A member of the RNA family "Mason-Pfizer monkey virus packaging signal" from Sciurus carolinensis, 276 nucleotides long.
Lineage of the source: Eukaryota > Opisthokonta > Eumetazoa > Gnathostomata > Sciurus.
From the family's description: This family represents a group of sequences that are related to the Mason-Pfizer monkey virus (MPMV) packaging signal. The packaging signal is located in the 5' UTR and is required for specific RNA encapsidation.
A search with the family's covariance model found it, with a score of 135 bits.
Rfam classes the family as a cis-regulatory element.
[Rfam]
RNA sequence: UGGCGCCCAAUGUGGGGCGUGGACACAGGGAAACCACGAGGGAAGAGGCAUUUGAUAGUUCGACUGAACACAGCAGAAGUCAGUUCAACAAAGAUCGUUGUGUGAGCCUGCCGUGUCGCUCUUAAAAGGUACAGUAAUUAUAAAUUAUGGGACAAGAUUUAAGUAAGCAUAGAGUUUUUGUUAAGCAGUUAAAAGAAGCCUUAAAGACACGGGGAGUAAGGGUUAAAAGUAAUGAGCUUUUUAAGUUUUUUGAAUUUAUCAAGGACACCUGCCCGU
Dot-bracket structure: .....(((...(((.........))).)))...((.(.......).))...................................((........(.(..((((.........))))..).)....)).......((..(((.......))).))......(((((.................................)).)))......((((((((..((.(((.......))).))......))))))))........(.((.(....).)).)